[Rfam]
RNA sequence: GAAAUUAAAGAAUAGAUUACAGAACACACUAUCUGUUUUUUCAAGCAGAGGAAAAGGUAUGGCGAGCUAUCGCUUCACUCGUCACUCCUCGAAUUGACGAUUCGAUUGUUGCUCAUCCAUAU
Numbered sequence: 001g002a003a004a005u006u007a008a009a010g011a012a013u014a015g016a017u018u019a020c021a022g023a024a025c026a027c028a029c030u031a032u033c034u035g036u037u038u039u040u041u042c043a044a045g046c047a048g049a050g051g052a053a054a055a056g057g058u059a060u061g062g063c064g065a066g067c068u069a070u071c072g073c074u075u076c077a078c079u080c081g082u083c084a085c086u087c088c089u090c091g092a093a094u095u096g097a098c099g100a101u102u103c104g105a106u107u108g109u110u111g112c113u114c115a116u117c118c119a120u121a122u
Base pairs, nucleotide, nucleotide: 007038008037009036011034013031014030015029018026061118062117064114065113066112069106070105071104072103079100080099081098082097083096084095086093
Rfam assigns this 122-nucleotide RNA sequence from Rhododendron simsii to the family "Small nucleolar RNA snoR111".
Taxonomically the source falls in Rhododendron (Eukaryota, Streptophytina, Ericoideae, Rhodoreae).
On this family, see Marker et al., Curr Biol 2002: "Experimental RNomics: identification of 140 candidates for small non-messenger RNAs in the plant Arabidopsis thaliana".
By type it is an H/ACA-box small nucleolar RNA.
A search with the family's covariance model found it, with a score of 61 bits.
Its family is annotated with RNA processing and nucleolus in the Gene Ontology.